[Rfam]
RNA: Small nucleolar RNA snR60/Z15/Z230/Z193/J17
Organism: Brassica oleracea
RNA sequence: AAGGGUCAAGUGAGGAUUGAUUUCGCAUAGUUCAGAUGAUAAAAAGUCUUACAUGAUUACAGUUAUCUUUCGCUCCUAUCUGAUGACCUUU
Numbered sequence: 001a002a003g004g005g006u007c008a009a010g011u012g013a014g015g016a017u018u019g020a021u022u023u024c025g026c027a028u029a030g031u032u033c034a035g036a037u038g039a040u041a042a043a044a045a046g047u048c049u050u051a052c053a054u055g056a057u058u059a060c061a062g063u064u065a066u067c068u069u070u071c072g073c074u075c076c077u078a079u080c081u082g083a084u085g086a087c088c089u090u091u
Stems, first nucleotide, its partner, number of pairs: 004088005